[Rfam]
RNA: SAM riboswitch aptamer (S box leader)
RNA sequence: CUCUUAUUAAGAGUGGUGGAGGGAAGUGCCCUAUGAAGCCCGGCAACCGUCAUGAAAAUGAAAUGGUGCCAAAUCACACAAAGUCUGACUUUGGAAGAUGAGAG
Numbered sequence: 001c002u003c004u005u006a007u008u009a010a011g012a013g014u015g016g017u018g019g020a021g022g023g024a025a026g027u028g029c030c031c032u033a034u035g036a037a038g039c040c041c042g043g044c045a046a047c048c049g050u051c052a053u054g055a056a057a058a059u060g061a062a063a064u065g066g067u068g069c070c071a072a073a074u075c076a077c078a079c080a081a082a083g084u085c086u087g088a089c090u091u092u093g094g095a096a097g098a099u100g101a102g103a104g
Base pairs, nucleotide, nucleotide: 001104002103003102004101005100006099007098008097013041015040016039017038021031022030023029026077027076028075042070043069044068045067047066048065050061051060052059074096079093080092081091082090083089084088
Dot-bracket structure: ((((((((....(.(((...(((..[[[)))......))))((((.((.(((......)))...))))))...(]]].((((((...))))))..)))))))))